[Rfam]
RNA sequence: GCGGGUGGCCGGAUGACCGCGUGCCUUCGGGCGCGAGGAAAGUCCGGACUCCAUGAGACAAGGGUGCCGGGUAACGCCCGGCCGGGGCAACCCGAGGGAAAGCGCCACAGAGAAGAGACCGCCCCACCGGCCGAAAGGCCCGGGGCAAGGGUGAAACGGUGGGGCAAGAGCCCACCGCGGGACUGGCAACAGGACCGGCACGGCAAGCCCCACCCGGAGCAAUGCCGAAUAGGGGUCUCGCGCGGGGCUGAUCCGUCAGGAUAUCGCCGCAGGGAAGUCUCAGCCCGAGAGACCCGGGUUGGCAGCUCGAUCCCGUCGGCAACGGCGGGGCCAGAGGAAUGGUCAUCGAAGGGGGCAACCCCGGAACAGAAUCCGGCUUACAGGCUGCCCGCACAU
Numbered sequence: 001g002c003g004g005g006u007g008g009c010c011g012g013a014u015g016a017c018c019g020c021g022u023g024c025c026u027u028c029g030g031g032c033g034c035g036a037g038g039a040a041a042g043u044c045c046g047g048a049c050u051c052c053a054u055g056a057g058a059c060a061a062g063g064g065u066g067c068c069g070g071g072u073a074a075c076g077c078c079c080g081g082c083c084g085g086g087g088c089a090a091c092c093c094g095a096g097g098g099a100a101a102g103c104g105c106c107a108c109a110g111a112g113a114a115g116a117g118a119c120c121g122c123c124c125c126a127c128c129g130g131c132c133g134a135a136a137g138g139c140c141c142g143g144g145g146c147a148a149g150g151g152u153g154a155a156a157c158g159g160u161g162g163g164g165c166a167a168g169a170g171c172c173c174a175c176c177g178c179g180g181g182a183c184u185g186g187c188a189a190c191a192g193g194a195c196c197g198g199c200a201c202g203g204c205a206a207g208c209c210c211c212a213c214c215c216g217g218a219g220c221a222a223u224g225c226c227g228a229a230u231a232g233g234g235g236u237c238u239c240g241c242g243c244g245g246g247g248c249u250g251a252u253c254c255g256u257c258a259g260g261a262u263a264u265c266g267c268c269g270c271a272g273g274g275a276a277g278u279c280u281c282a283g284c285c286c287g288a289g290a291g292a293c294c295c296g297g298g299u300u301g302g303c304a305g306c307u308c309g310a311u312c313c314c315g316u317c318g319g320c321a322a323c324g325g326c327g328g329g330g331c332c333a334g335a336g337g338a339a340u341g342g343u344c345a346u347c348g349a350a351g352g353g354g355g356c357a358a359c360c361c362c363g364g365a366a367c368a369g370a371a372u373c374c375g376g377c378u379u380a381c382a383g384g385c386u387g388c389c390c391g392c393a394c395a396u
Stems, first nucleotide, its partner, number of pairs: 001392010011381001012347007020035006040379003044376005049219004057281002060278001062215005067081005082096001083094004097210002102208002104204003119150002121146003127143002129140004158176006177199001178197003183192003223304004233295006272286003311330008
A member of the RNA family "Bacterial RNase P class A" from Cereibacter sphaeroides, 396 nucleotides long. The family's RNA type in Rfam is ribozyme. For this family Rfam cites "The Ribonuclease P Database" (Brown, Nucleic Acids Res, 1999). Gene Ontology terms of the family: ribonuclease P activity, tRNA processing and dimeric ribonuclease P complex.